[Rfam]
RNA: MIR7486 microRNA precursor family
Organism: Gossypium lobatum
RNA sequence: CACGUCAGCGCGCUUUGCUGACAUUGACACAAAUCGUACUUUCGUGGACUCGCUUUGUUGCCACAUCAGCAAAGCGCGCUGACGUGG
Numbered sequence: 001c002a003c004g005u006c007a008g009c010g011c012g013c014u015u016u017g018c019u020g021a022c023a024u025u026g027a028c029a030c031a032a033a034u035c036g037u038a039c040u041u042u043c044g045u046g047g048a049c050u051c052g053c054u055u056u057g058u059u060g061c062c063a064c065a066u067c068a069g070c071a072a073a074g075c076g077c078g079c080u081g082a083c084g085u086g087g
Base pairs, nucleotide, nucleotide: 001086002085003084004083005082006081007080008079009078010077011076012075013074014073015072016071017070018069019068020067021066024063026061029058030057031056032055033054035052036051040047041046